[Rfam]
RNA: Flavo-1 RNA
Nucleotides: 081
Stems, first nucleotide, its partner, number of pairs: 020073003024069002029064002034059003040054005
Number, partner (000 for none) and nucleotide at each position: 001000a002000a003000a004000u005000a006000c007000c008000c009000a010000a011000u012000u013000u014000g015000c016000g017000u018000u019000a020073g021072g022071g023000a024069u025068u026000g027000a028000a029064a030063c031000g032000a033000c034059a035058u036057c037000c038000u039000u040054u041053u042052u043051g044050c045000u046000u047000u048000u049000c050044g051043c052042a053041a054040a055000a056000a057036g058035a059034u060000a061000u062000a063030g064029u065000g066000u067000a068025a069024a070000g071022c072021c073020c074000g075000a076000c077000c078000u079000u080000u081000u